The family of this 321-nucleotide RNA from Romanomermis culicivorax is "Nuclear RNase P".
RNA sequence: UCGGUGCCAAGUCAAUCUAAGGGGUCACGUAAAGGCGCCCUGUUCGCCUGUUUUUACCCCUGGGAAGGUCUGAGAUGGAGCCUCGUCCACAAUGGACGAUAGUUUCCAGCGGAAACUUCGCCCAAGGCGAAUCGGGCGUACCAGAAAAUUGUCCAUCGGUUCGGAGCGAUCGAAGUUGCGUCUUCGGCGCCCAAGACGCCCCGGACUUCGUUCGGUGAAGAGGCGUUCUCACUCCGUCCUGAUUUGGGAGACGUCCGAGGCUGGCUGUGAGCUGAGUGCGAUGGUUGUCAGGGAACUCAAUUCAGACUACUCUGGCGCCGA
Numbered sequence: 001u002c003g004g005u006g007c008c009a010a011g012u013c014a015a016u017c018u019a020a021g022g023g024g025u026c027a028c029g030u031a032a033a034g035g036c037g038c039c040c041u042g043u044u045c046g047c048c049u050g051u052u053u054u055u056a057c058c059c060c061u062g063g064g065a066a067g068g069u070c071u072g073a074g075a076u077g078g079a080g081c082c083u084c085g086u087c088c089a090c091a092a093u094g095g096a097c098g099a100u101a102g103u104u105u106c107c108a109g110c111g112g113a114a115a116c117u118u119c120g121c122c123c124a125a126g127g128c129g130a131a132u133c134g135g136g137c138g139u140a141c142c143a144g145a146a147a148a149u150u151g152u153c154c155a156u157c158g159g160u161u162c163g164g165a166g167c168g169a170u171c172g173a174a175g176u177u178g179c180g181u182c183u184u185c186g187g188c189g190c191c192c193a194a195g196a197c198g199c200c201c202c203g204g205a206c207u208u209c210g211u212u213c214g215g216u217g218a219a220g221a222g223g224c225g226u227u228c229u230c231a232c233u234c235c236g237u238c239c240u241g242a243u244u245u246g247g248g249a250g251a252c253g254u255c256c257g258a259g260g261c262u263g264g265c266u267g268u269g270a271g272c273u274g275a276g277u278g279c280g281a282u283g284g285u286u287g288u289c290a291g292g293g294a295a296c297u298c299a300a301u302u303c304a305g306a307c308u309a310c311u312c313u314g315g316c317g318c319c320g321a
Stems, first nucleotide, its partner, number of pairs: 001321004007315003015286001017284002020061005033049005070305005079262004102116005117131006132258007151243003
Rfam links the family to the GO terms ribonuclease P complex, ribonuclease P activity and tRNA processing.
A search with the family's covariance model found it, with a score of 130 bits.
Ribonuclease P (RNase P) is a ubiquitous endoribonuclease, found in archaea, bacteria and eukarya as well as chloroplasts and mitochondria. Its best characterised activity is the generation of mature 5'-ends of tRNAs by cleaving the 5'-leader elements of precursor-tRNAs. Cellular RNase Ps are ribonucleoproteins. RNA from bacterial RNase Ps retains its catalytic activity in the absence of the protein subunit, i.e. it is a ribozyme.
Pairs were carried over by alignment from the consensus structure, which is taken from published work.